Rfam assigns this 105-nucleotide RNA sequence from Vulpes vulpes to the family "mir-8834 microRNA precursor family".

RNA sequence: AGGAGGUACAACCGCAGUGGCGGCGGCAGCUCUGGAGCCCUGGAGUCAGCCCCGGCAGUAACUCCUGGGCUCUCCGUCUGCAGGGCCUGGAGGCUCUGGGGGCGG
Numbered sequence: 001a002g003g004a005g006g007u008a009c010a011a012c013c014g015c016a017g018u019g020g021c022g023g024c025g026g027c028a029g030c031u032c033u034g035g036a037g038c039c040c041u042g043g044a045g046u047c048a049g050c051c052c053c054g055g056c057a058g059u060a061a062c063u064c065c066u067g068g069g070c071u072c073u074c075c076g077u078c079u080g081c082a083g084g085g086c087c088u089g090g091a092g093g094c095u096c097u098g099g100g101g102g103c104g105g
Stems, first nucleotide, its partner, number of pairs: 002097004007092001009089002012085002019078005025072001028071005034065003040058003
The base pairs follow the family's consensus structure, which was predicted with RNAalifold. Its family is annotated with RISC complex and miRNA-mediated post-transcriptional gene silencing in the Gene Ontology. The match comes from Rfam's covariance-model search (73 bits).